[Rfam]
RNA sequence: AAAGUACAAUGAGUAGUAUAUAGUGCUUGUGCCUUGAUUGAGGAGAUUCCGGUUCGAAUCCAGGCUAUUGUGCUAGCAUCUAGGGAACUAGGUGCUUUUAUGA
Numbered sequence: 001a002a003a004g005u006a007c008a009a010u011g012a013g014u015a016g017u018a019u020a021u022a023g024u025g026c027u028u029g030u031g032c033c034u035u036g037a038u039u040g041a042g043g044a045g046a047u048u049c050c051g052g053u054u055c056g057a058a059u060c061c062a063g064g065c066u067a068u069u070g071u072g073c074u075a076g077c078a079u080c081u082a083g084g085g086a087a088c089u090a091g092g093u094g095c096u097u098u099u100a101u102g103a
Stems, first nucleotide, its partner, number of pairs: 003074007012066002032043004048064002051061002076095008